[Rfam]
RNA sequence: CUCUUAUCUUGAGCGGUGGAGGGACUGGCCCUAUGAAACCGCGGCAACCUUCGACGAAGUUUAUUCGAAAGGUGCUAAUUCCUGCGAAGCAUAGCUUUGACAGAUGAGAG
Numbered sequence: 001c002u003c004u005u006a007u008c009u010u011g012a013g014c015g016g017u018g019g020a021g022g023g024a025c026u027g028g029c030c031c032u033a034u035g036a037a038a039c040c041g042c043g044g045c046a047a048c049c050u051u052c053g054a055c056g057a058a059g060u061u062u063a064u065u066c067g068a069a070a071g072g073u074g075c076u077a078a079u080u081c082c083u084g085c086g087a088a089g090c091a092u093a094g095c096u097u098u099g100a101c102a103g104a105u106g107a108g109a110g
Base pairs, nucleotide, nucleotide: 001110002109003108004107005106006105007104008103013042014041015040016039017038021031022030023029025084027082028081043076044075045074046073048072049071050069051068052067053066080102085099086098087097088096089095090094
Dot-bracket structure: ((((((((....(((((...(((.[.[[)))......)))))((((.((((((............)))).))))))...(]].]((((((...))))))..)))))))))

The family of this 110-nucleotide RNA from Virgibacillus salexigens is "SAM riboswitch aptamer (S box leader)".